The record is a 177-nucleotide RNA from Oryza barthii, which matches "MIR807 microRNA precursor family" in Rfam. Rfam 15.1 lists 1,514 matches to the family in 13 species. Pairs were carried over by alignment from the consensus structure, which was predicted with WAR. Gene Ontology terms of the family: miRNA-mediated post-transcriptional gene silencing and RISC complex.

RNA sequence: AACCACACUAUCGAUAAAUGGAUUUAUCCGUGAGAUGACGUGGUUGUUCCAUGUAAGAUGAGGACGUGGCAUCCUAUUAAUUUCGUGCGAUGGCUGAUAAUAGGAUGCCAUGUUCUCGUCCUAGGUGAAACAGUCACGUCAUAUCGCGGGUGAAUCCAUUCAUUCUACACUAUAAAA
Numbered sequence: 001a002a003c004c005a006c007a008c009u010a011u012c013g014a015u016a017a018a019u020g021g022a023u024u025u026a027u028c029c030g031u032g033a034g035a036u037g038a039c040g041u042g043g044u045u046g047u048u049c050c051a052u053g054u055a056a057g058a059u060g061a062g063g064a065c066g067u068g069g070c071a072u073c074c075u076a077u078u079a080a081u082u083u084c085g086u087g088c089g090a091u092g093g094c095u096g097a098u099a100a101u102a103g104g105a106u107g108c109c110a111u112g113u114u115c116u117c118g119u120c121c122u123a124g125g126u127g128a129a130a131c132a133g134u135c136a137c138g139u140c141a142u143a144u145c146g147c148g149g150g151u152g153a154a155u156c157c158a159u160u161c162a163u164u165c166u167a168c169a170c171u172a173u174a175a176a177a
Base pairs, nucleotide, nucleotide: 005173007171009169011167013165014163015162017160018159019158021156022155023154024153025152026151027150028149030147031146032145033144035142036141037140038139039138041136042135043134044133045132046131047130048129051126052125054123055122057120058119063114064113065112069108070107071106072105073104074103075102076101077100078099079098086097